Hepatitis delta virus ribozyme: a 74-nucleotide RNA from Nephila pilipes. The family's consensus secondary structure is taken from published work. Taxonomically the source falls in Nephila (Eukaryota, Metazoa, Bilateria, Entelegynae).
[Rfam]
RNA sequence: UUGGGGUGCUAUGUAGACCCACCUCCCCGUUGGUGCACCCUGGGCAACGUUCUUGUAACGGCAAAGGGUCUACA
Dot-bracket structure: ..(((((((..[[.[..[[[(((.[[.....))))))))))]]....((((.....)))).....]]]].]]..